Nucleotides: 081
Base pairs, nucleotide, nucleotide: 003055004054005053006052007051008050021043022042023041024040025039026038
Number, partner (000 for none) and nucleotide at each position: 001000a002000c003055u004054u005053c006052c007051g008050a009000g010000g011000a012000g013000c014000g015000u016000u017000g018000c019000a020000g021043c022042g023041c024040c025039c026038c027000c028000u029000g030000c031000c032000a033000u034000c035000u036000g037000c038026g039025g040024g041023g042022c043021g044000u045000g046000a047000g048000g049000c050008u051007c052006g053005g054004a055003g056000u057000c058000a059000u060000c061000a062000a063000g064000c065000a066000a067000c068000g069000a070000c071000g072000c073000u074000c075000a076000u077000c078000c079000a080000c081000u
Annotation:
Rfam assigns this 81-nucleotide sequence from Acidovorax temperans to the family "SAH (S-adenosyl-L-homocysteine) riboswitch aptamer". The match comes from Rfam's covariance-model search (61 bits).